[Rfam]
RNA: Fluoride riboswitch aptamer (crcB RNA motif)
Organism: Paraburkholderia xenovorans
RNA sequence: UGCUGCGCUGGAGAUGGCAUUCUCCUUUAACCGCCCUUAUGGCUGAUGAUGCCUGCUCGCCC
Numbered sequence: 001u002g003c004u005g006c007g008c009u010g011g012a013g014a015u016g017g018c019a020u021u022c023u024c025c026u027u028u029a030a031c032c033g034c035c036c037u038u039a040u041g042g043c044u045g046a047u048g049a050u051g052c053c054u055g056c057u058c059g060c061c062c
Stems, first nucleotide, its partner, number of pairs: 010025004016053006033043003